[Rfam]
This 77-nucleotide RNA sequence from Parnassius apollo belongs to the Rfam family "Mammalian CPEB3 ribozyme". On this family, see Salehi-Ashtiani et al., Science 2006: "A genomewide search for ribozymes reveals an HDV-like sequence in the human CPEB3 gene". Its family is annotated with RNA nuclease activity in the Gene Ontology. NCBI's taxonomy places the organism under Eukaryota, Neoptera, Endopterygota, Obtectomera, Parnassius.

RNA sequence: ACAAAUUUAUACGGGGUCAUUGUAGAAGCGUGCUCGUCACGACCCCAGCCAGCCCUUUUCAGGGUUGCAAUUCUACA
Dot-bracket structure: ............[[[[[[..((((((((.(.......).)]]]]]]...(((((((....)))))))...)))))))